[Rfam]
RNA sequence: AAAAAGGGUGCUCGCUACUUAAAUAGCGCUUCAGCACGGUUUAAUUUAGCCGUGCUGGCGGGGUAUGGCCAAUCAAGACAUACCCAGUACGUAAUUUUUGUAAAAGCGAGGCUGUUGGCUGCCAAUAAUUGCACUGACGCCUCC
Numbered sequence: 001a002a003a004a005a006g007g008g009u010g011c012u013c014g015c016u017a018c019u020u021a022a023a024u025a026g027c028g029c030u031u032c033a034g035c036a037c038g039g040u041u042u043a044a045u046u047u048a049g050c051c052g053u054g055c056u057g058g059c060g061g062g063g064u065a066u067g068g069c070c071a072a073u074c075a076a077g078a079c080a081u082a083c084c085c086a087g088u089a090c091g092u093a094a095u096u097u098u099u100g101u102a103a104a105a106g107c108g109a110g111g112c113u114g115u116u117g118g119c120u121g122c123c124a125a126u127a128a129u130u131g132c133a134c135u136g137a138c139g140c141c142u143c144c
Base pairs, nucleotide, nucleotide: 008090009089010088011087012086013028014027015026016025017024029060031058032057033056034055035054036053037052038051039050040049061085062084063083064082065081066080067079109142110141111140112139114138115137116136117135118134120133121132122131
RNA: U11 spliceosomal RNA
Organism: Melipona bicolor